[Rfam]
RNA sequence: UCGUCCGCCCCUCGGAAUGCCUUCUGUCCAUGUGCGGGCUGACGGCUACGCUGGCCAGGUGCGGCCCGGUCAGCCCGGGCCCGUAUAGCCGACAGCCGUCGCACUCCAGGGAGCAUCUCCAUG
Numbered sequence: 001u002c003g004u005c006c007g008c009c010c011c012u013c014g015g016a017a018u019g020c021c022u023u024c025u026g027u028c029c030a031u032g033u034g035c036g037g038g039c040u041g042a043c044g045g046c047u048a049c050g051c052u053g054g055c056c057a058g059g060u061g062c063g064g065c066c067c068g069g070u071c072a073g074c075c076c077g078g079g080c081c082c083g084u085a086u087a088g089c090c091g092a093c094a095g096c097c098g099u100c101g102c103a104c105u106c107c108a109g110g111g112a113g114c115a116u117c118u119c120c121a122u123g
Stems, first nucleotide, its partner, number of pairs: 060085004066078004088102002091100003
About this RNA:
The family of this 123-nucleotide RNA from Actinacidiphila oryziradicis is "Streptomyces-metH RNA". It scores 89 bits against the family's covariance model. The base pairs follow the family's consensus structure, which is taken from published work.